[Rfam]
RNA sequence: ACCUUCUUCUCAGGGUCCAGUUUUCCCAGGAAUCCCUUCUGUACUGAUAAGGGGAUUCCUGGAAAUACUGUUCUUGGGGGCAAGGC
Numbered sequence: 001a002c003c004u005u006c007u008u009c010u011c012a013g014g015g016u017c018c019a020g021u022u023u024u025c026c027c028a029g030g031a032a033u034c035c036c037u038u039c040u041g042u043a044c045u046g047a048u049a050a051g052g053g054g055a056u057u058c059c060u061g062g063a064a065a066u067a068c069u070g071u072u073c074u075u076g077g078g079g080g081c082a083a084g085g086c
Base pairs, nucleotide, nucleotide: 018070019069020068021067023065024064026062027061028060029059030058031057032056033055034054035053036052037051
Notes:
The family of this 86-nucleotide RNA sequence from Scyliorhinus torazame is "mir-145 microRNA precursor family". Rfam links the family to the GO terms miRNA-mediated post-transcriptional gene silencing and RISC complex. The organism belongs to Scyliorhinus, within Eukaryota. The base pairs follow the family's consensus structure, which was predicted with RNAalifold.